The record is a 77-nucleotide RNA from Phtheirospermum japonicum, which matches "Small nucleolar RNA R21" in Rfam. Its family is annotated with nucleolus and RNA processing in the Gene Ontology. Lineage of the source: Eukaryota > Tracheophyta > asterids > Lamiales > Phtheirospermum. Pairs were carried over by alignment from the consensus structure, which was predicted with PFOLD. The match comes from Rfam's covariance-model search (57 bits).
RNA sequence: AAUUCCUGUGAAGAUCAUACAUUGAAAUAAAAGUAGUGGCCUGAUAUACACUGAUGAUAUUUUUGUUCUGAGGGAUU
Numbered sequence: 001a002a003u004u005c006c007u008g009u010g011a012a013g014a015u016c017a018u019a020c021a022u023u024g025a026a027a028u029a030a031a032a033g034u035a036g037u038g039g040c041c042u043g044a045u046a047u048a049c050a051c052u053g054a055u056g057a058u059a060u061u062u063u064u065g066u067u068c069u070g071a072g073g074g075a076u077u
Stems, first nucleotide, its partner, number of pairs: 001077006